RNA sequence: ACGCGGGGACGACCCCGCCUCUCCACGAUCAUCCGGGGACGGCCCCU
Numbered sequence: 001a002c003g004c005g006g007g008g009a010c011g012a013c014c015c016c017g018c019c020u021c022u023c024c025a026c027g028a029u030c031a032u033c034c035g036g037g038g039a040c041g042g043c044c045c046c047u
Base pairs, nucleotide, nucleotide: 001020003018004017005016006015007014008013035046036045037044038043
The record is a 47-nucleotide RNA from Marilutibacter maris, which matches "Guanidine-II riboswitch aptamer (mini-ykkC)" in Rfam. From the family's description: Simpler in structure and has fewer highly conserved nucleotide positions than the ykkC-yxkD leader. Despite this each of its two stem-loop structures directly bind free guanidine.